[Rfam]
A member of the RNA family "U1 spliceosomal RNA" from Cervus elaphus, 164 nucleotides long. From the family's description: U1 is a small nuclear RNA (snRNA) component of the spliceosome (involved in pre-mRNA splicing). Its 5' end forms complementary base pairs with the 5' splice junction, thus defining the 5' donor site of an intron. There are significant differences in sequence and secondary structure between metazoan and yeast U1 snRNAs, the latter being much longer (568 nucleotides as compared to 164 nucleotides in human).
RNA sequence: AUACUUACCUGGCAGGGGAGACACCAUGAUCACGAAGGUGGUUUUCCCAGGGCAAGGCUCAUCCAUUGCAUUCUGGAUGUGAUGCCCCUGUGAUUUACUCAAAUGUGGGAAACUCGAUUGCAUAAUUUGUGCUAGUGGGGCGACUGCAUUCACACUUUGUCCUG
Numbered sequence: 001a002u003a004c005u006u007a008c009c010u011g012g013c014a015g016g017g018g019a020g021a022c023a024c025c026a027u028g029a030u031c032a033c034g035a036a037g038g039u040g041g042u043u044u045u046c047c048c049a050g051g052g053c054a055a056g057g058c059u060c061a062u063c064c065a066u067u068g069c070a071u072u073c074u075g076g077a078u079g080u081g082a083u084g085c086c087c088c089u090g091u092g093a094u095u096u097a098c099u100c101a102a103a104u105g106u107g108g109g110a111a112a113c114u115c116g117a118u119u120g121c122a123u124a125a126u127u128u129g130u131g132c133u134a135g136u137g138g139g140g141c142g143a144c145u146g147c148a149u150u151c152a153c154a155c156u157u158u159g160u161c162c163u164g
Base pairs, nucleotide, nucleotide: 012121013120014119015118016048017047018046019045020044021043023042024041025040026039027038049089050088051087052086056083058081060079061078062077063076064075091116092115093114094112095111096110098108099107137163138162139161140160141159143158146155
Notes
The match comes from Rfam's covariance-model search (130 bits). Lineage of the source: Eukaryota > Deuterostomia > Tetrapoda > Eutheria > Cervus elaphus.